[Rfam]
RNA sequence: UCACCGCUGGUGAUACACAGGGUCCAGUCACUUAAAGCCCCGAAUUUUCGGGGUUUUUUGUUAUUACGAAUCAGCAUCACUGGGCUAUUAAGCCCUUUUUUU
Numbered sequence: 001u002c003a004c005c006g007c008u009g010g011u012g013a014u015a016c017a018c019a020g021g022g023u024c025c026a027g028u029c030a031c032u033u034a035a036a037g038c039c040c041c042g043a044a045u046u047u048u049c050g051g052g053g054u055u056u057u058u059u060g061u062u063a064u065u066a067c068g069a070a071u072c073a074g075c076a077u078c079a080c081u082g083g084g085c086u087a088u089u090a091a092g093c094c095c096u097u098u099u100u101u102u
Stems, first nucleotide, its partner, number of pairs: 034057009082095004